[Rfam]
RNA sequence: AGCUGCCAUAAUGGACAUAGCAGAAGCGCUCAAGUCAUGGCCCUGUCAGAUUUUAAUGAAUCUGCAAAUUCUGCU
Numbered sequence: 001a002g003c004u005g006c007c008a009u010a011a012u013g014g015a016c017a018u019a020g021c022a023g024a025a026g027c028g029c030u031c032a033a034g035u036c037a038u039g040g041c042c043c044u045g046u047c048a049g050a051u052u053u054u055a056a057u058g059a060a061u062c063u064g065c066a067a068a069u070u071c072u073g074c075u
Base pairs, nucleotide, nucleotide: 013042014041016039019075020074021073022072023071024070025069026038028036047064048063049062050061051060052059053058

The family of this 75-nucleotide RNA sequence from Alligator mississippiensis is "Mammalian CPEB3 ribozyme". The mammalian CPEB3 ribozyme is a self cleaving RNA located in the second intron of the CPEB3 gene which belongs to a family of genes regulating messenger RNA polyadenylation.